[Rfam]
RNA sequence: AGGCAACCGACUAGUGACCAACUGCAGACGGAAAAUCUAGAGAGAAGCCAGAAGAAGAGACCGAAGGGCGAAAGCAUUUACAAGAGUCGAUGAGAAAAAAUAGCUUGUAAAUCCACCAAGAAUUCAAGAGAAAGAAUUCAAGGAGCUAAAGAAAAUCUCACUUUAGACCCCUGAGGAAUCGAAUUAAGAAAA
Numbered sequence: 001a002g003g004c005a006a007c008c009g010a011c012u013a014g015u016g017a018c019c020a021a022c023u024g025c026a027g028a029c030g031g032a033a034a035a036u037c038u039a040g041a042g043a044g045a046a047g048c049c050a051g052a053a054g055a056a057g058a059g060a061c062c063g064a065a066g067g068g069c070g071a072a073a074g075c076a077u078u079u080a081c082a083a084g085a086g087u088c089g090a091u092g093a094g095a096a097a098a099a100a101u102a103g104c105u106u107g108u109a110a111a112u113c114c115a116c117c118a119a120g121a122a123u124u125c126a127a128g129a130g131a132a133a134g135a136a137u138u139c140a141a142g143g144a145g146c147u148a149a150a151g152a153a154a155a156u157c158u159c160a161c162u163u164u165a166g167a168c169c170c171c172u173g174a175g176g177a178a179u180c181g182a183a184u185u186a187a188g189a190a191a192a
Base pairs, nucleotide, nucleotide: 002049003048004047011040012039013038014037062175065172066171067170076112077111078110079109080108081107082106083105084104120139121138122137123136124135128159129158130157131156146166147165148164149163150162151161